The family of this 86-nucleotide sequence from Paenalicyclobacillus ferrooxydans is "c-di-GMP-I riboswitch aptamer". About the family: GEMM was predicted in a large-scale screen for bacterial structured RNA regulatory elements. Its family is annotated with cyclic-di-GMP binding in the Gene Ontology. The match comes from Rfam's covariance-model search (50 bits). The family's consensus secondary structure is taken from published work.
RNA sequence: GAAGAAUACGGGCACAGUACGAGGAAACUCUACGUCGCAAAGCCACGGAUCUACGGGCACAAGCCUAUGACGGCCUGGUUGCUAUC
Number, nucleotide and partner (000 for none) at each position: 001g000002a000003a000004g000005a000006a000007u000008a000009c000010g000011g000012g038013c037014a000015c000016a000017g033018u032019a031020c000021g030022a029023g028024g000025a000026a000027a000028c023029u022030c021031u019032a018033c017034g000035u000036c000037g013038c012039a000040a000041a080042g079043c078044c077045a000046c000047g075048g074049a000050u070051c069052u000053a000054c000055g000056g065057g064058c063059a000060c000061a000062a000063g058064c057065c056066u000067a000068u000069g051070a050071c000072g000073g000074c048075c047076u000077g044078g043079u042080u041081g000082c000083u000084a000085u000086c000